Rfam assigns this 102-nucleotide RNA from Bacillus sp. T33-2 to the family "Purine riboswitch aptamer". The base pairs follow the family's consensus structure, which is taken from published work.
[Rfam]
RNA sequence: AAAAAUUAAUAGUGCAACCUUCAUAUAUCCUCGAUGAUAUGGAUCGAAAGUUUCUACCGGAUCACCGCAAAUGGUCUGACUAUGAAGGCAGAUUUUUUGUGG
Numbered sequence: 001a002a003a004a005a006u007u008a009a010u011a012g013u014g015c016a017a018c019c020u021u022c023a024u025a026u027a028u029c030c031u032c033g034a035u036g037a038u039a040u041g042g043a044u045c046g047a048a049a050g051u052u053u054c055u056a057c058c059g060g061a062u063c064a065c066c067g068c069a070a071a072u073g074g075u076c077u078g079a080c081u082a083u084g085a086a087g088g089c090a091g092a093u094u095u096u097u098u099g100u101g102g
Stems, first nucleotide, its partner, number of pairs: 018088008031047005058078007
NCBI's taxonomy places the organism under Bacteria, Bacillota, Caryophanales, Bacillaceae, Bacillus. About the family: Riboswitches are metabolite binding domains within certain messenger RNAs that serve as precision sensors for their corresponding targets.